[Rfam]
Nucleotides: 300
Base pairs, nucleotide, nucleotide: 001046002045003044004023005022006021007020008019009018028043029042030041048298049297050296051295052294054292060287063284064283068277069276070275071274072273073272074271079270081268082267083266085264086263087262088261089260090259091258094256095255096254097253099251104249106247107246108245109244110243111239112238114237115236116235117234118233120230122228123227124226125225126224127223128222129168130167131166132165134163135162136161137160138159140157141156142155143154144153145152146151169175170174177220178219179218180217181216187212188211189210190209195204196203197202
Number, partner (000 for none) and nucleotide at each position: 001046g002045c003044u004023g005022g006021a007020u008019g009018c010000a011000g012000u013000g014000g015000c016000g017000a018009g019008u020007g021006u022005c023004u024000g025000u026000a027000g028043u029042c030041c031000c032000a033000g034000c035000u036000a037000c038000g039000u040000a041030g042029g043028a044003g045002g046001c047000u048298g049297a050296g051295a052294c053000a054292g055000u056000a057000g058000g059000a060287u061000c062000a063284c064283u065000u066000g067000a068277g069276u070275c071274c072273a073272g074271g075000a076000g077000u078000u079270c080000u081268g082267g083266g084000c085264u086263g087262u088261a089260g090259u091258g092000u093000a094256c095255u096254a097253u098000g099251c100000u101000g102000a103000u104249c105000c106247g107246g108245u109244g110243u111239c112238c113000a114237c115236a116235c117234u118233a119000a120230g121000u122228u123227c124226a125225g126224c127223a128222u129168c130167a131166a132165u133000a134163u135162g136161g137160u138159g139000a140157c141156c142155u143154c144153u145152g146151g147000g148000g149000a150000g151146c152145u153144a154143g155142g156141g157140g158000c159138c160137a161136c162135c163134a164000g165132g166131u167130u168129g169175c170174c171000u172000a173000a174170g175169g176000a177220g178219g179218g180217g181216u182000g183000a184000a185000c186000c187212g188211g189210c190209u191000c192000a193000g194000g195204u196203u197202g198000a199000a200000a201000a202197u203196g204195g205000a206000g207000c208000a209190g210189g211188u212187c213000a214000a215000a216181a217180c218179u219178c220177c221000c222128a223127u224126g225125u226124u227123g228122a229000u230120c231000a232000g233118u234117a235116g236115u237114g238112g239111g240000a241000u242000c243110g244109c245108a246107c247106c248000u249104g250000u251099g252000a253097a254096u255095a256094g257000c258091c259090a260089c261088u262087g263086c264085a265000c266083u267082c268081c269000u270079g271074c272073c273072u274071g275070g276069g277068c278000a279000a280000c281000a282000u283064a284063g285000c286000a287060a288000g289000a290000c291000c292054c293000c294052g295051u296050c297049u298048c299000u300000a
The family of this 300-nucleotide RNA sequence from Otolemur garnettii is "Metazoan signal recognition particle RNA". Its family is annotated with signal recognition particle, endoplasmic reticulum targeting and SRP-dependent cotranslational protein targeting to membrane, signal sequence recognition in the Gene Ontology. Clan: SRP clan. Taxonomically the source falls in Otolemur (Eukaryota, Opisthokonta, Theria, Lorisiformes). The match comes from Rfam's covariance-model search (243 bits). The signal recognition particle (SRP) is a universally conserved ribonucleoprotein. By type it is a non-coding RNA gene.